About this RNA
A member of the RNA family "Small nucleolar RNA SNORA63" from Octodon degus, 127 nucleotides long. Rfam's curators write: E3 belongs to the H/ACA class of snoRNAs and is involved in the processing of eukaryotic pre-rRNA and has regions of complementarity to 18S rRNA. E3 is encoded in introns in the gene for protein synthesis initiation factor 4AII. For this family Rfam cites "Three small nucleolar RNAs that are involved in ribosomal RNA precursor processing" (Mishra and Eliceiri, Proc Natl Acad Sci U S A, 1997). The family's RNA type in Rfam is H/ACA-box small nucleolar RNA. The source organism's lineage runs through Eukaryota, Deuterostomia, Rodentia, Octodontidae and Octodon.
RNA sequence: AAGCAGGAUUCAGACUACAAUAUAGCUGUUAAGUGCUGUGUUGUCAUUCUCCCUGCUCAGAAUAAAGUUGUUUCUUAACUAUAACUUAAGUUAUAGUUAGCUGCCAGGGACACUUGGUCUCAUAUAU
Numbered sequence: 001a002a003g004c005a006g007g008a009u010u011c012a013g014a015c016u017a018c019a020a021u022a023u024a025g026c027u028g029u030u031a032a033g034u035g036c037u038g039u040g041u042u043g044u045c046a047u048u049c050u051c052c053c054u055g056c057u058c059a060g061a062a063u064a065a066a067g068u069u070g071u072u073u074c075u076u077a078a079c080u081a082u083a084a085c086u087u088a089a090g091u092u093a094u095a096g097u098u099a100g101c102u103g104c105c106a107g108g109g110a111c112a113c114u115u116g117g118u119c120u121c122a123u124a125u126a127u
Stems, first nucleotide, its partner, number of pairs: 003056005017044010085107002089102003